[Rfam]
RNA sequence: UUUGGUUCAGCUUCUGCUUUCUGAAAGCAGAAGCAGGUUCAGAAAGCUGAACCAAACACAGCCUGAACCUCUUUGGUUCAGCUUCUGCUUUCUGAAAGUAGAAGCAGGUUCAGAAAGCU
Numbered sequence: 001u002u003u004g005g006u007u008c009a010g011c012u013u014c015u016g017c018u019u020u021c022u023g024a025a026a027g028c029a030g031a032a033g034c035a036g037g038u039u040c041a042g043a044a045a046g047c048u049g050a051a052c053c054a055a056a057c058a059c060a061g062c063c064u065g066a067a068c069c070u071c072u073u074u075g076g077u078u079c080a081g082c083u084u085c086u087g088c089u090u091u092c093u094g095a096a097a098g099u100a101g102a103a104g105c106a107g108g109u110u111c112a113g114a115a116a117g118c119u
Stems, first nucleotide, its partner, number of pairs: 008036001010034009065111006077096005
Annotation
Shown here is a 119-nucleotide RNA from Panicum hallii, a member of the family "Small nucleolar RNA SNORA5". It is annotated as an H/ACA-box small nucleolar RNA. The family has 6 seed sequences and 2,226 matches in Rfam 15.1. Gene Ontology terms of the family: RNA processing and nucleolus. From the family's description: ACA5 is a member of the H/ACA class of snoRNA that guide the sites of modification of uridines to pseudouridines. The organism belongs to Panicum hallii, within Eukaryota.